[Rfam]
RNA sequence: GAAGCAGACCAGACCGCCGCUGGUGCAAUCCGCAAGGCGGCGCGCAAGCGCCGGGCCGAAAGGCCGCACUGGAGGAAGGUCCGGACUGCACAGAGCAGCGUAGCGGGUAACGCCCGUCCACCGCGAGGUGCGGAUCAGAGCCACAGAGACGAGUCGGCGACGGAAGGCGCAAGCCUUCUUGGGAGACGGCAUGCCGCGCUCCGACGUCGCCGGGUGAAACGCGGCAAUCUCUACGCGCAGCAACACCAAAUAGGCCAGCUUUGACGCGGCUCGCUGAGCUGGCGGGUAGGUGGCAUCGAGCCAGGGUGGCAACACCCCGGCCCAGAGGAAUGGCGGUCACGCCCGUCCGGCGCAAGCCGGGCGGGCGCACAGAAUCCGGCCUAUCGGUCUGCUUCACUU
Numbered sequence: 001g002a003a004g005c006a007g008a009c010c011a012g013a014c015c016g017c018c019g020c021u022g023g024u025g026c027a028a029u030c031c032g033c034a035a036g037g038c039g040g041c042g043c044g045c046a047a048g049c050g051c052c053g054g055g056c057c058g059a060a061a062g063g064c065c066g067c068a069c070u071g072g073a074g075g076a077a078g079g080u081c082c083g084g085a086c087u088g089c090a091c092a093g094a095g096c097a098g099c100g101u102a103g104c105g106g107g108u109a110a111c112g113c114c115c116g117u118c119c120a121c122c123g124c125g126a127g128g129u130g131c132g133g134a135u136c137a138g139a140g141c142c143a144c145a146g147a148g149a150c151g152a153g154u155c156g157g158c159g160a161c162g163g164a165a166g167g168c169g170c171a172a173g174c175c176u177u178c179u180u181g182g183g184a185g186a187c188g189g190c191a192u193g194c195c196g197c198g199c200u201c202c203g204a205c206g207u208c209g210c211c212g213g214g215u216g217a218a219a220c221g222c223g224g225c226a227a228u229c230u231c232u233a234c235g236c237g238c239a240g241c242a243a244c245a246c247c248a249a250a251u252a253g254g255c256c257a258g259c260u261u262u263g264a265c266g267c268g269g270c271u272c273g274c275u276g277a278g279c280u281g282g283c284g285g286g287u288a289g290g291u292g293g294c295a296u297c298g299a300g301c302c303a304g305g306g307u308g309g310c311a312a313c314a315c316c317c318c319g320g321c322c323c324a325g326a327g328g329a330a331u332g333g334c335g336g337u338c339a340c341g342c343c344c345g346u347c348c349g350g351c352g353c354a355a356g357c358c359g360g361g362c363g364g365g366c367g368c369a370c371a372g373a374a375u376c377c378g379g380c381c382u383a384u385c386g387g388u389c390u391g392c393u394u395c396a397c398u399u
Base pairs, nucleotide, nucleotide: 001395002394003393004392005391006390007389008388009387010386011384012338013337014336015335016334017333018332020072021071022070023069024068025067026066077382078381079380081379082378083377084376085375086240087239088238089237093272094271095270096269098236099235100234101233102232103117104116105115106114107113118132119130120129121128122127133231134230138229139228140225141224142223155213156211157210158209159208160207161206162205244292245291246290247289254283255282256281257280258279259278266274267273300321301320302319304317305316306315307314308313